[Rfam]
RNA: c-di-GMP-I riboswitch aptamer
Organism: Paenibacillus durus
RNA sequence: CAGUGAAAAAGGCAAAUCAUGAGAAAUCAUGAGACGCAAAGCCAAGGGCCUGAACCACAUCCAUGUGGAAGGCAGCCGGUUGCCACA
Numbered sequence: 001c002a003g004u005g006a007a008a009a010a011g012g013c014a015a016a017u018c019a020u021g022a023g024a025a026a027u028c029a030u031g032a033g034a035c036g037c038a039a040a041g042c043c044a045a046g047g048g049c050c051u052g053a054a055c056c057a058c059a060u061c062c063a064u065g066u067g068g069a070a071g072g073c074a075g076c077c078g079g080u081u082g083c084c085a086c087a
Stems, first nucleotide, its partner, number of pairs: 012037002017032006040081004046077002048073003055068004